[Rfam]
RNA sequence: GCACUGGCAUAGUUCAGUGGUUACUUCAAUGCACAAAUCUGUCUGAGAUUUCGUAGCUCUCUCUCCCUACCAGGGAUCGAACCACGGACGCUGUCCAGUGUUUUC
Dot-bracket structure: .((((((....((((.((((....(((.(...............................................).))))))))))).....)))))).....